[Rfam]
RNA sequence: GCCUCCUUAGCGAAUAGUCGUCCGGUUAACGGCGUGCUUGUCAGUAAGACGACAAGAUAGCUUGGGAGGUUUUC
Number, nucleotide and partner (000 for none) at each position: 001g070002c069003c068004u067005c066006c065007u000008u000009a062010g061011c060012g000013a000014a000015u000016a000017g033018u032019c031020g030021u029022c000023c000024g000025g000026u000027u000028a000029a021030c020031g019032g018033c017034g000035u000036g000037c056038u055039u054040g053041u052042c051043a000044g000045u000046a000047a000048g000049a000050c000051g042052a041053c040054a039055a038056g037057a000058u000059a000060g011061c010062u009063u000064g000065g006066g005067a004068g003069g002070u001071u000072u000073u000074c000

The family of this 74-nucleotide RNA is "DUF3800-IX RNA". Rfam describes the family as follows. Actinobacteria, Firmicutes (1 example), Nitrospirae, Proteobacteria, Verrucomicrobia (1 example). Rfam classes the family as a small RNA.